[Rfam]
RNA sequence: GAUGGAUGAUUAGUCAAAUCUGAGUGUGAGAAGACCUUCCAGUCUACUUCACACCAGAUCCCUACAGUUCUGAGA
Number, nucleotide and partner (000 for none) at each position: 001g000002a000003u000004g000005g000006a000007u000008g000009a000010u000011u000012a000013g000014u000015c000016a000017a000018a000019u000020c000021u000022g000023a000024g054025u053026g052027u051028g050029a000030g000031a000032a045033g044034a043035c042036c000037u000038u000039c000040c000041a000042g035043u034044c033045u032046a000047c000048u000049u000050c028051a027052c026053a025054c024055c000056a000057g000058a000059u000060c000061c000062c000063u000064a000065c000066a000067g000068u000069u000070c000071u000072g000073a000074g000075a000